Shown here is a 587-nucleotide part of an RNA from Anaerolinea thermolimosa, a member of the family "Bacterial large subunit ribosomal RNA". Gene Ontology terms of the family: structural constituent of ribosome and ribosome. It scores 2709 bits against the family's covariance model. NCBI's taxonomy places the organism under Bacteria, Bacillati, Chloroflexota, Anaerolineaceae, Anaerolinea. The family's consensus secondary structure is taken from published work.

RNA sequence: CCCGCAGCAGGACAAAAAGACCCCGUGGAGCUUUACUGCAACCUGUCAUUGAGUUUGGGCACGGUCUGUGUAGGAUAGGUGGGAGGCUGAGAAGCUGGAGCGCAAGCUUCGGUGGAGCCGCCGGUGAAAUACCACCCUGAUCGUGUUUAGACCCUAACCCCUGGCCCGAAGCGGGCAGGGGGACCGUGGCAGGCGGGCAGUUUGACUGGGGCGGUCGCCUCCUAAAGGGUAACGGAGGCGCCCAAAGGUUCCCUCAGGCAGAAUGGAAACCUGCCGGAGAGUGCAAAGGCAGAAGGGAGCUUGACUGCAAGACCAACGCGUCGAGCAGAGACGAAAGUCGGGCUUAGUGAUCCCACGUUUCUGAGUGGAAGGGACGUGGCUUACCGGACAAAAGCUACCCCGGGGAUAACAGGCUGGUGAAGUCCAAGAGUUCACAUCGACGACUUCGCUCGGCACCUCGAUGUCGGCUCAUCGCAUCCUGGGGCUGGACAAGGUCCCAAGGGUCGGGCUGUUCGCCCGUUAAAGCGGUACGCGAGCUGGGUUCAGACCGUCGUGAGACAGGUCGGUCUCUAUCCGCUGUGGGCGUA
Numbered sequence: 001c002c003c004g005c006a007g008c009a010g011g012a013c014a015a016a017a018a019g020a021c022c023c024c025g026u027g028g029a030g031c032u033u034u035a036c037u038g039c040a041a042c043c044u045g046u047c048a049u050u051g052a053g054u055u056u057g058g059g060c061a062c063g064g065u066c067u068g069u070g071u072a073g074g075a076u077a078g079g080u081g082g083g084a085g086g087c088u089g090a091g092a093a094g095c096u097g098g099a100g101c102g103c104a105a106g107c108u109u110c111g112g113u114g115g116a117g118c119c120g121c122c123g124g125u126g127a128a129a130u131a132c133c134a135c136c137c138u139g140a141u142c143g144u145g146u147u148u149a150g151a152c153c154c155u156a157a158c159c160c161c162u163g164g165c166c167c168g169a170a171g172c173g174g175g176c177a178g179g180g181g182g183a184c185c186g187u188g189g190c191a192g193g194c195g196g197g198c199a200g201u202u203u204g205a206c207u208g209g210g211g212c213g214g215u216c217g218c219c220u221c222c223u224a225a226a227g228g229g230u231a232a233c234g235g236a237g238g239c240g241c242c243c244a245a246a247g248g249u250u251c252c253c254u255c256a257g258g259c260a261g262a263a264u265g266g267a268a269a270c271c272u273g274c275c276g277g278a279g280a281g282u283g284c285a286a287a288g289g290c291a292g293a294a295g296g297g298a299g300c301u302u303g304a305c306u307g308c309a310a311g312a313c314c315a316a317c318g319c320g321u322c323g324a325g326c327a328g329a330g331a332c333g334a335a336a337g338u339c340g341g342g343c344u345u346a347g348u349g350a351u352c353c354c355a356c357g358u359u360u361c362u363g364a365g366u367g368g369a370a371g372g373g374a375c376g377u378g379g380c381u382u383a384c385c386g387g388a389c390a391a392a393a394g395c396u397a398c399c400c401c402g403g404g405g406a407u408a409a410c411a412g413g414c415u416g417g418u419g420a421a422g423u424c425c426a427a428g429a430g431u432u433c434a435c436a437u438c439g440a441c442g443a444c445u446u447c448g449c450u451c452g453g454c455a456c457c458u459c460g461a462u463g464u465c466g467g468c469u470c471a472u473c474g475c476a477u478c479c480u481g482g483g484g485c486u487g488g489a490c491a492a493g494g495u496c497c498c499a500a501g502g503g504u505c506g507g508g509c510u511g512u513u514c515g516c517c518c519g520u521u522a523a524a525g526c527g528g529u530a531c532g533c534g535a536g537c538u539g540g541g542u543u544c545a546g547a548c549c550g551u552c553g554u555g556a557g558a559c560a561g562g563u564c565g566g567u568c569u570c571u572a573u574c575c576g577c578u579g580u581g582g583g584c585g586u587a
Stems, first nucleotide, its partner, number of pairs: 001583008010575003015569001022404004027400002029396005035201004042193007051154001053152014068137001078136005085119003094113008158181003162178001164176004204216004217239006240385001242342002248300006254280002257275005281290002305328004311322003330339003353379007361372002413454003417451001418448007428438002465540001466538004470532001471529005478503002481498006505519005546564004550559003